[Rfam]
RNA sequence: CCUGUUAUGCGACUAGCAGUAGCCUACGGAGACAUGCGUCACUGGCAACGGUGAGGUGUGAAGCUCUCCUGACAACGUAGCCCCCGGCAUCGGGCAAGGCGAAACCGUGAGGUAUUGUCUUGAAGACUCCCAGCAGCAAGGGGGUUGAGGAG
Dot-bracket structure: .((((((......))))))........((((((((((.((((((....)))))).)))))....))))).............((((....))))((((......((....))......))))...((((((........)))))).......